About this RNA: The family of this 177-nucleotide RNA from Natranaerovirga pectinivora is "6S / SsrS RNA". The family's consensus secondary structure is taken from published work. About the family: E. coli 6S RNA was the first non coding RNA to be sequenced, but its function was unknown until recently.
[Rfam]
RNA sequence: GGAUUUCUAAGAUGUUCGACACCCUGUAUUUUUGAACCUGUAGACAUAAUAAGGGAGUUCAAAUCGCAAAGUGUAUGUCAAGCCUUCAAUACGUAGAGGAAGACAGAAACUUUGGUGAGAGCACCCACCUAGCGCAGCUAGGGAUCAAAAAUUCAGGAACGGCAUGUUGGAUCUUAA
Numbered sequence: 001g002g003a004u005u006u007c008u009a010a011g012a013u014g015u016u017c018g019a020c021a022c023c024c025u026g027u028a029u030u031u032u033u034g035a036a037c038c039u040g041u042a043g044a045c046a047u048a049a050u051a052a053g054g055g056a057g058u059u060c061a062a063a064u065c066g067c068a069a070a071g072u073g074u075a076u077g078u079c080a081a082g083c084c085u086u087c088a089a090u091a092c093g094u095a096g097a098g099g100a101a102g103a104c105a106g107a108a109a110c111u112u113u114g115g116u117g118a119g120a121g122c123a124c125c126c127a128c129c130u131a132g133c134g135c136a137g138c139u140a141g142g143g144a145u146c147a148a149a150a151a152u153u154c155a156g157g158a159a160c161g162g163c164a165u166g167u168u169g170g171a172u173c174u175u176a177a
Base pairs, nucleotide, nucleotide: 002175003174006171007170008169009168010167012165013164014163015162017161018160030150031149033147034146035145037143038142053126054125055124057122058121059120060119067114068113069112070111071110072109078103079102083099084098085097086096